[Rfam]
RNA sequence: AGAUAAUAUAAAGUAUUCCUUCAUAUAUCCUCAAUGAUAUGGAUUGAGAGUCUCUACCGGGUUACCGUAAACGACCUGACUAUGAAGGCAGCGUGUCUAUGU
Numbered sequence: 001a002g003a004u005a006a007u008a009u010a011a012a013g014u015a016u017u018c019c020u021u022c023a024u025a026u027a028u029c030c031u032c033a034a035u036g037a038u039a040u041g042g043a044u045u046g047a048g049a050g051u052c053u054c055u056a057c058c059g060g061g062u063u064a065c066c067g068u069a070a071a072c073g074a075c076c077u078g079a080c081u082a083u084g085a086a087g088g089c090a091g092c093g094u095g096u097c098u099a100u101g102u
Base pairs, nucleotide, nucleotide: 018088019087020086021085022084023083024082025081030048031047032046033045034044035043058078059077060076061075062074063073

This 102-nucleotide RNA sequence belongs to the Rfam family "Purine riboswitch aptamer". It scores 86 bits against the family's covariance model. Rfam's curators write: Riboswitches are metabolite binding domains within certain messenger RNAs that serve as precision sensors for their corresponding targets.